This 131-nucleotide RNA from Bacillus sp. 165 belongs to the Rfam family "Ribosomal protein L20 leader". Rfam classes the family as a cis-regulatory leader. The literature on the family includes a 1994 paper in Prog Nucleic Acid Res Mol Biol by Zengel and Lindahl, "Diverse mechanisms for regulating ribosomal protein synthesis in Escherichia coli".
RNA sequence: UAUGGAAAGCAGGAGCACCCGCUUCUCACCUGAACGACGCAAAUAAGCAGUUGACAGGUAUAGAUGAUGAUCGUGAUAAAUUUAUGACGUCAAAAGUGUGGGUGUAUAUAUGCCCGCACUUUUUUAUUGGG
Numbered sequence: 001u002a003u004g005g006a007a008a009g010c011a012g013g014a015g016c017a018c019c020c021g022c023u024u025c026u027c028a029c030c031u032g033a034a035c036g037a038c039g040c041a042a043a044u045a046a047g048c049a050g051u052u053g054a055c056a057g058g059u060a061u062a063g064a065u066g067a068u069g070a071u072c073g074u075g076a077u078a079a080a081u082u083u084a085u086g087a088c089g090u091c092a093a094a095a096g097u098g099u100g101g102g103u104g105u106a107u108a109u110a111u112g113c114c115c116g117c118a119c120u121u122u123u124u125u126a127u128u129g130g131g
Stems, first nucleotide, its partner, number of pairs: 011026006028059003036052003039048002097118009
The base pairs follow the family's consensus structure, which was predicted with CMfinder.